[Rfam]
RNA: Alphaproteobacterial sRNA BjrC1505
Nucleotides: 151
Stems, first nucleotide, its partner, number of pairs: 002049003005017002023044001025042002054067002057064001071089006095108004118146001120144009
Number, partner (000 for none) and nucleotide at each position: 001000g002049g003048g004047c005017c006016g007000g008000g009000c010000g011000u012000u013000a014000a015000c016006c017005g018000a019000a020000c021000a022000u023044c024000a025042a026041g027000a028000a029000u030000u031000c032000u033000g034000c035000g036000a037000u038000a039000g040000c041026c042025u043000c044023g045000a046000c047004g048003c049002c050000a051000u052000u053000c054067c055066a056000g057064c058000u059000c060000g061000c062000u063000g064057g065000a066055u067054g068000u069000u070000c071089g072088a073087g074086u075085g076084g077000c078000u079000c080000c081000u082000g083000u084076u085075c086074a087073c088072u089071c090000u091000g092000u093000u094000u095108g096107a097106c098105g099000c100000c101000u102000c103000c104000c105098u106097g107096u108095u109000u110000c111000g112000a113000c114000u115000u116000g117000g118146a119000c120144a121143a122142g123141c124140c125139g126138c127137g128136a129000u130000a131000u132000c133000u134000u135000a136128u137127c138126g139125c140124g141123g142122c143121u144120u145000c146118u147000u148000u149000u150000u151000g